Annotation
A member of the RNA family "small nucleolar RNA snoR143" from Paspalum vaginatum, 170 nucleotides long. Pairs were carried over by alignment from the consensus structure, which was predicted with RNAalifold.
RNA sequence: UGGCCCCAGCGAUUUAUGUUCUUCCUUCGGUCCUUGUUGGUGGGAUACCUUUCUGGGGCAGAAAGGGAAUGCUGCUCCAUGAAGCAGUGGCGGCCAGACAACCGUUGAUACAGAUCCACAGAUAAACGACUAAUCUUAUGUUGUUUGUCUACUAAAUCUGUCUCACAUUU
Number, nucleotide and partner (000 for none) at each position: 001u000002g000003g059004c058005c057006c056007c000008a000009g052010c000011g000012a000013u000014u000015u000016a051017u000018g049019u000020u047021c000022u045023u044024c043025c042026u000027u040028c039029g038030g000031u000032c000033c000034u000035u000036g000037u000038u029039g028040g027041u000042g025043g024044g023045a022046u000047a020048c000049c018050u000051u016052u009053c000054u000055g000056g006057g005058g004059c003060a000061g000062a000063a000064a000065g000066g000067g000068a000069a000070u000071g000072c000073u000074g000075c000076u000077c000078c000079a000080u000081g000082a000083a000084g000085c000086a000087g000088u000089g000090g000091c000092g000093g000094c000095c000096a000097g000098a000099c000100a000101a000102c000103c000104g000105u000106u000107g164108a163109u000110a161111c160112a159113g158114a157115u000116c000117c000118a000119c000120a000121g000122a000123u000124a146125a145126a144127c143128g142129a141130c140131u000132a000133a000134u000135c000136u000137u000138a000139u000140g130141u129142u128143g127144u126145u125146u124147g000148u000149c000150u000151a000152c000153u000154a000155a000156a000157u114158c113159u112160g111161u110162c000163u108164c107165a000166c000167a000168u000169u000170u000
It scores 82 bits against the family's covariance model. Lineage of the source: Eukaryota > Tracheophyta > Mesangiospermae > Paspalinae > Paspalum. Gene Ontology terms of the family: nucleolus and RNA processing.